[Rfam]
ncRNA Repressor of NFAT (nuclear factor of activated T cells): a 340-nucleotide RNA from Sciurus vulgaris.
RNA sequence: GGGAGCAAAUGGCGUCAGGAACUCUGGAACUUUUCUUUGUAUGUUACAUUAAUCCAUAUAAGAAAAUCUCUUUUAAUGAGGAGUGAUGUAGUUACAAACUCUCCAGAGCCAUAAUUAGAGCAAACUAAUUGAAGCUGUGUUUUGACACACUUUCCAAACUCACGGGUGCGGGCGACACACUCACAACACUGCUGCAGAAUCGUAGGCUAAUAAUGCUCGCCUCGCAUCCCGUCAAGCGCGCCCCUCCAGAUGCCUUUCUGCACCGUGCCUGCGCUGCGCUCUCCACUGGAAGAUAUUAACAGUGAUCAUUAGCACUUCCGUGGAAUUCUGAUGUUAGGAU
Numbered sequence: 001g002g003g004a005g006c007a008a009a010u011g012g013c014g015u016c017a018g019g020a021a022c023u024c025u026g027g028a029a030c031u032u033u034u035c036u037u038u039g040u041a042u043g044u045u046a047c048a049u050u051a052a053u054c055c056a057u058a059u060a061a062g063a064a065a066a067u068c069u070c071u072u073u074u075a076a077u078g079a080g081g082a083g084u085g086a087u088g089u090a091g092u093u094a095c096a097a098a099c100u101c102u103c104c105a106g107a108g109c110c111a112u113a114a115u116u117a118g119a120g121c122a123a124a125c126u127a128a129u130u131g132a133a134g135c136u137g138u139g140u141u142u143u144g145a146c147a148c149a150c151u152u153u154c155c156a157a158a159c160u161c162a163c164g165g166g167u168g169c170g171g172g173c174g175a176c177a178c179a180c181u182c183a184c185a186a187c188a189c190u191g192c193u194g195c196a197g198a199a200u201c202g203u204a205g206g207c208u209a210a211u212a213a214u215g216c217u218c219g220c221c222u223c224g225c226a227u228c229c230c231g232u233c234a235a236g237c238g239c240g241c242c243c244c245u246c247c248a249g250a251u252g253c254c255u256u257u258c259u260g261c262a263c264c265g266u267g268c269c270u271g272c273g274c275u276g277c278g279c280u281c282u283c284c285a286c287u288g289g290a291a292g293a294u295a296u297u298a299a300c301a302g303u304g305a306u307c308a309u310u311a312g313c314a315c316u317u318c319c320g321u322g323g324a325a326u327u328c329u330g331a332u333g334u335u336a337g338g339a340u
Base pairs, nucleotide, nucleotide: 047333048332049331050330051329053324054323055322056321057320060317061316062315068083069082070081071080072079073078088309089308091306092305093304094303095302099108100107101106120268121267122266131153132152133151134150136149137148138147139146140145164245165244166243168239169238206225207224209222211219
The pairing is the family consensus, mapped onto this sequence. Rfam 15.1 lists 522 matches to the family in 519 species. It is annotated as a non-coding RNA gene.